[Rfam]
RNA sequence: CGAUGAUUGAAAAGGAGCUCUCCUUAGUACGAGAGGACCGGGAGAGGCGAACCUCUGGUGUUCCGGUUGUCACGCCAGUGGCAAUGGCCGGGUAGCUAUGUUCGAAAGGGAUAAGCGCUGAAUGCAUAUAAGUGCGAAGCCCCCCUUAAGAUGAAUCAUCGAUCUGCAGCAAUGCAGUGAAGACACCUUGUAGACUACGAGGUUGAUAGGCAGCGAGUGUACGAUCCGAAAGGAUUUUAGCUAAGCUGUACUAAUUAGUCGAAC
Numbered sequence: 001c002g003a004u005g006a007u008u009g010a011a012a013a014g015g016a017g018c019u020c021u022c023c024u025u026a027g028u029a030c031g032a033g034a035g036g037a038c039c040g041g042g043a044g045a046g047g048c049g050a051a052c053c054u055c056u057g058g059u060g061u062u063c064c065g066g067u068u069g070u071c072a073c074g075c076c077a078g079u080g081g082c083a084a085u086g087g088c089c090g091g092g093u094a095g096c097u098a099u100g101u102u103c104g105a106a107a108g109g110g111a112u113a114a115g116c117g118c119u120g121a122a123u124g125c126a127u128a129u130a131a132g133u134g135c136g137a138a139g140c141c142c143c144c145c146u147u148a149a150g151a152u153g154a155a156u157c158a159u160c161g162a163u164c165u166g167c168a169g170c171a172a173u174g175c176a177g178u179g180a181a182g183a184c185a186c187c188u189u190g191u192a193g194a195c196u197a198c199g200a201g202g203u204u205g206a207u208a209g210g211c212a213g214c215g216a217g218u219g220u221a222c223g224a225u226c227c228g229a230a231a232g233g234a235u236u237u238u239a240g241c242u243a244a245g246c247u248g249u250a251c252u253a254a255u256u257a258g259u260c261g262a263a264c
Stems, first nucleotide, its partner, number of pairs: 001161008012147004018046007048104005056098003063091005068083006108142003115135005164177003182260003186202005207253003210249005216242002223236005
Description:
Bacterial large subunit ribosomal RNA: a 264-nucleotide part of an RNA from an uncultured bacterium. Pairs were carried over by alignment from the consensus structure, which is taken from published work. The sequence is in the family's curated seed alignment.